A member of the RNA family "Bacteroidete tryptophan peptide leader RNA", 119 nucleotides long. Rfam links the family to the GO terms regulation of gene expression and S-adenosylmethionine metabolic process.
RNA sequence: AAUAUAUCUUUGAGCCCACAAUGAAAACAAUCAGAACAAAUACUUGGUGGUGGUCUACUUUACGAAAAACGUCGUGAACUGAACACCUAUGGUAUUAAACAUAUACGAAAAGGCUUGUC
Numbered sequence: 001a002a003u004a005u006a007u008c009u010u011u012g013a014g015c016c017c018a019c020a021a022u023g024a025a026a027a028c029a030a031u032c033a034g035a036a037c038a039a040a041u042a043c044u045u046g047g048u049g050g051u052g053g054u055c056u057a058c059u060u061u062a063c064g065a066a067a068a069a070c071g072u073c074g075u076g077a078a079c080u081g082a083a084c085a086c087c088u089a090u091g092g093u094a095u096u097a098a099a100c101a102u103a104u105a106c107g108a109a110a111a112g113g114c115u116u117g118u119c
Stems, first nucleotide, its partner, number of pairs: 040095005047088001049087004056081002059078003062072003